[Rfam]
RNA sequence: GGAUGAAUUACGCUGAAUUUUCAAUCACGAAAAGCGGGGGAACCAUAUCGGCAUCGGCAUGCAAUCCUUUAUGAAGGGAUGAAGCCGGAUGCUUGGGGUGAAUCGGAUGGAAAGAUUCCAAUCCGUAGGGCAACUCUCACAGCCCGAAUCCGACAGCUAACCUCGUAAGCGUCGCUAUGAGAGAGG
Numbered sequence: 001g002g003a004u005g006a007a008u009u010a011c012g013c014u015g016a017a018u019u020u021u022c023a024a025u026c027a028c029g030a031a032a033a034g035c036g037g038g039g040g041a042a043c044c045a046u047a048u049c050g051g052c053a054u055c056g057g058c059a060u061g062c063a064a065u066c067c068u069u070u071a072u073g074a075a076g077g078g079a080u081g082a083a084g085c086c087g088g089a090u091g092c093u094u095g096g097g098g099u100g101a102a103u104c105g106g107a108u109g110g111a112a113a114g115a116u117u118c119c120a121a122u123c124c125g126u127a128g129g130g131c132a133a134c135u136c137u138c139a140c141a142g143c144c145c146g147a148a149u150c151c152g153a154c155a156g157c158u159a160a161c162c163u164c165g166u167a168a169g170c171g172u173c174g175c176u177a178u179g180a181g182a183g184a185g186g
Stems, first nucleotide, its partner, number of pairs: 011171004018033005034166006044095002096151003104125004128145004

About this RNA: A member of the RNA family "c-di-AMP riboswitch aptamer (ydaO/yuaA leader)" from Paenibacillus albilobatus, 186 nucleotides long.